[Rfam]
RNA sequence: GUCCCCGGAGGUCAACAUCCGCCAGCGCGUUGCGCCCGCGGAUGUCGUUUUC
Numbered sequence: 001g002u003c004c005c006c007g008g009a010g011g012u013c014a015a016c017a018u019c020c021g022c023c024a025g026c027g028c029g030u031u032g033c034g035c036c037c038g039c040g041g042a043u044g045u046c047g048u049u050u051u052c
Stems, first nucleotide, its partner, number of pairs: 016044007025035004